[Rfam]
The record is an 87-nucleotide RNA sequence from Beta vulgaris, which matches "Small nucleolar RNA Z159/U59" in Rfam. Pairs were carried over by alignment from the consensus structure, which was predicted with PFOLD. It scores 81 bits against the family's covariance model. It is annotated as a C/D-box small nucleolar RNA. The family has 10 seed sequences and 1,401 matches in Rfam 15.1. For this family Rfam cites "The high diversity of snoRNAs in plants: identification and comparative study of 120 snoRNA genes from Oryza sativa" (Chen et al., Nucleic Acids Res, 2003). Gene Ontology terms of the family: nucleolus and RNA processing. The source organism's lineage runs through Eukaryota, Embryophyta, Mesangiospermae, eudicotyledons and Beta vulgaris. Clan: SNORD59 clan.
RNA sequence: GCCUCUAAUGAUGAUGAAAACAAUACUUUCGUUCUUCUGAGAUAUUCUCAUGCGGAAAAACUAUUUGGAGACCUGAACUGAAGAGGC
Numbered sequence: 001g002c003c004u005c006u007a008a009u010g011a012u013g014a015u016g017a018a019a020a021c022a023a024u025a026c027u028u029u030c031g032u033u034c035u036u037c038u039g040a041g042a043u044a045u046u047c048u049c050a051u052g053c054g055g056a057a058a059a060a061c062u063a064u065u066u067g068g069a070g071a072c073c074u075g076a077a078c079u080g081a082a083g084a085g086g087c
Stems, first nucleotide, its partner, number of pairs: 003085004